[Rfam]
RNA sequence: CUCGGGGUUCGUGCCAGGGGUGCGUUUGCAAAGCCCGCUACAAGUUUGCGUUGUUGCAAAGUUGACACUGUAAAUGCACUAUCUGGUACGACACCCCGGG
Numbered sequence: 001c002u003c004g005g006g007g008u009u010c011g012u013g014c015c016a017g018g019g020g021u022g023c024g025u026u027u028g029c030a031a032a033g034c035c036c037g038c039u040a041c042a043a044g045u046u047u048g049c050g051u052u053g054u055u056g057c058a059a060a061g062u063u064g065a066c067a068c069u070g071u072a073a074a075u076g077c078a079c080u081a082u083c084u085g086g087u088a089c090g091a092c093a094c095c096c097c098g099g100g
Base pairs, nucleotide, nucleotide: 003098004097005096006095010090011089012088013087014086015085016084017083018082020079022077023076024075025074026073027072036070037069

The record is a 100-nucleotide RNA from Heliconius melpomene, which matches "mir-277 microRNA precursor family" in Rfam.
Pairs were carried over by alignment from the consensus structure, which was predicted with RNAalifold.
Rfam links the family to the GO terms RISC complex and miRNA-mediated post-transcriptional gene silencing.
Taxonomically the source falls in Heliconius (Eukaryota, Arthropoda, Neoptera, Panorpida).
The literature on the family includes a 2010 paper in BMC Genomics by Liu et al., "MicroRNAs of Bombyx mori identified by Solexa sequencing".